Rfam assigns this 87-nucleotide sequence from Aotus nancymaae to the family "mir-515 microRNA precursor family". Rfam links the family to the GO terms miRNA-mediated post-transcriptional gene silencing and RISC complex. Its Rfam clan is "mir-290 clan". Taxonomically the source falls in Aotus (Eukaryota, Opisthokonta, Mammalia, Platyrrhini). The match comes from Rfam's covariance-model search (91 bits).

[Rfam]
RNA sequence: UCUCAGUCUGUGAGCCUCUAGAGGGAAGCACAUUCUGUUUUCUGAAAGAAAAGAAAGUGCUUCCAUUUAGAGAUUUACCGUUUGAGA
Numbered sequence: 001u002c003u004c005a006g007u008c009u010g011u012g013a014g015c016c017u018c019u020a021g022a023g024g025g026a027a028g029c030a031c032a033u034u035c036u037g038u039u040u041u042c043u044g045a046a047a048g049a050a051a052a053g054a055a056a057g058u059g060c061u062u063c064c065a066u067u068u069a070g071a072g073a074u075u076u077a078c079c080g081u082u083u084g085a086g087a
Base pairs, nucleotide, nucleotide: 001087002086003085004084005083008080010078011077012076013075014074016072017071018070020068021067022066024064025063026062027061028060029059030058031057033055034054035053038052039051